Overview: Shown here is a 102-nucleotide sequence from Thermoactinomyces mirandus, a member of the family "Purine riboswitch aptamer". From the family's description: Riboswitches are metabolite binding domains within certain messenger RNAs that serve as precision sensors for their corresponding targets. Allosteric rearrangement of mRNA structure is mediated by ligand binding, and this results in modulation of gene expression. A class of riboswitches that selectively recognises guanine and becomes saturated at concentrations as low as 5 nM. In Bacillus subtilis, this mRNA motif is located on at least five separate transcriptional units that together encode 17 genes that are mostly involved in purine transport and purine nucleotide biosynthesis. It has also been shown that some members of this family are specific for adenine instead. Hence this family are termed purine riboswitches. Pairs were carried over by alignment from the consensus structure, which is taken from published work. The match comes from Rfam's covariance-model search (80 bits).

[Rfam]
RNA sequence: GAUUUUUAUUAAUCCUUUUACCGUAUAUGUUUGGGAAUAAGGCCUGAACGUCUCUACCCGGCUACCUUAAAUAGCUGGACUACGGUUGAUAGGUCUUCGGAU
Numbered sequence: 001g002a003u004u005u006u007u008a009u010u011a012a013u014c015c016u017u018u019u020a021c022c023g024u025a026u027a028u029g030u031u032u033g034g035g036a037a038u039a040a041g042g043c044c045u046g047a048a049c050g051u052c053u054c055u056a057c058c059c060g061g062c063u064a065c066c067u068u069a070a071a072u073a074g075c076u077g078g079a080c081u082a083c084g085g086u087u088g089a090u091a092g093g094u095c096u097u098c099g100g101a102u
Stems, first nucleotide, its partner, number of pairs: 018088001020086006029049007058078007